[Rfam]
RNA: permuted transfer-messenger RNA
Organism: Chitinasiproducens palmae
RNA sequence: GGUCGUAUCAAGACCGCCAUGUGGGUACGCUCCGGACGGGGGUUCGAUUCCCCCCGGCUCCACCAGAUGGACAUCGCUGCUGACGAGGUCAAUUUCUCGUUGCCUGGUGUCCAUCCCCUGGGGCCGACCUGGUUUCGACGGGGUGAGGAAACGGACGCGGACGACUCGGAAGGUGACGCACGUUAUGCGCACAAUCUCAGAAAUGCCAACGAUGAGCGUUUCUUGCAAGCGGCCUAA
Numbered sequence: 001g002g003u004c005g006u007a008u009c010a011a012g013a014c015c016g017c018c019a020u021g022u023g024g025g026u027a028c029g030c031u032c033c034g035g036a037c038g039g040g041g042g043u044u045c046g047a048u049u050c051c052c053c054c055c056g057g058c059u060c061c062a063c064c065a066g067a068u069g070g071a072c073a074u075c076g077c078u079g080c081u082g083a084c085g086a087g088g089u090c091a092a093u094u095u096c097u098c099g100u101u102g103c104c105u106g107g108u109g110u111c112c113a114u115c116c117c118c119u120g121g122g123g124c125c126g127a128c129c130u131g132g133u134u135u136c137g138a139c140g141g142g143g144u145g146a147g148g149a150a151a152c153g154g155a156c157g158c159g160g161a162c163g164a165c166u167c168g169g170a171a172g173g174u175g176a177c178g179c180a181c182g183u184u185a186u187g188c189g190c191a192c193a194a195u196c197u198c199a200g201a202a203a204u205g206c207c208a209a210c211g212a213u214g215a216g217c218g219u220u221u222c223u224u225g226c227a228a229g230c231g232g233c234c235u236a237a
Base pairs, nucleotide, nucleotide: 001166002165003164004163005162016156018154028145029144030143032141033140034139038054039053040052041051042050055126056125057124058123059122060121061120167182168181